[Rfam]
The record is a 55-nucleotide RNA sequence from Synaphobranchus kaupii, which matches "UnaL2 LINE 3' element" in Rfam.
Gene Ontology term of the family: transposition, RNA-mediated.
Pairs were carried over by alignment from the consensus structure, which is taken from published work.
The organism belongs to Synaphobranchus, within Eukaryota.
RNA sequence: UGUAUGCACUUACUGUACGUCGCUUUGGAUAAAAGUGUCUGCUAAAUGAAUGUAA
Number, nucleotide and partner (000 for none) at each position: 001u000002g000003u000004a000005u000006g000007c000008a000009c000010u000011u000012a000013c000014u044015g042016u041017a040018c000019g000020u000021c037022g036023c035024u034025u033026u032027g000028g000029a000030u000031a000032a026033a025034a024035g023036u022037g021038u000039c000040u017041g016042c015043u000044a014045a000046a000047u000048g000049a000050a000051u000052g000053u000054a000055a000